[Rfam]
RNA sequence: CUCUUAUCCCGAGCUGGUGGAGGGACAGGCCCUAUGAAACCCAGCAACCAUCACCCAUUUCCAUAGAGGUGAUAAGGUGCUAACCUGAUGCAAGGGAAUAAACCUUGAUCGAUAAGAG
Number, nucleotide and partner (000 for none) at each position: 001c118002u117003c116004u115005u114006a113007u112008c111009c000010c000011g000012a000013g042014c000015u000016g041017g040018u039019g000020g000021a000022g032023g031024g030025a000026c090027a089028g000029g086030c024031c023032c022033u000034a000035u000036g000037a000038a000039a018040c017041c016042c013043a081044g080045c079046a078047a000048c077049c076050a073051u072052c071053a070054c069055c068056c000057a000058u000059u000060u000061c000062c000063a000064u000065a000066g000067a000068g055069g054070u053071g052072a051073u050074a000075a000076g049077g048078u046079g045080c044081u043082a000083a000084c000085c000086u029087g000088a000089u027090g026091c107092a106093a105094g104095g103096g000097a000098a000099u000100a000101a000102a000103c095104c094105u093106u092107g091108a000109u000110c000111g008112a007113u006114a005115a004116g003117a002118g001
The family of this 118-nucleotide RNA sequence from Priestia veravalensis is "SAM riboswitch aptamer (S box leader)". The match comes from Rfam's covariance-model search (77 bits). NCBI's taxonomy places the organism under Bacteria, Bacillota, Bacilli, Bacillaceae, Priestia. Its Rfam clan is "SAM clan".